[Rfam]
RNA sequence: CGGUUGACCCUGCGGUGCUGCCGGACCCCCGACCUGGCAGCACCGCAGGGUUUCGU
Number, nucleotide and partner (000 for none) at each position: 001c000002g000003g054004u000005u000006g000007a051008c050009c049010c048011u047012g046013c045014g044015g043016u042017g041018c040019u039020g038021c037022c036023g000024g000025a000026c000027c000028c000029c000030c000031g000032a000033c000034c000035u000036g022037g021038c020039a019040g018041c017042a016043c015044c014045g013046c012047a011048g010049g009050g008051u007052u000053u000054c003055g000056u000
RNA: F6 TB sRNA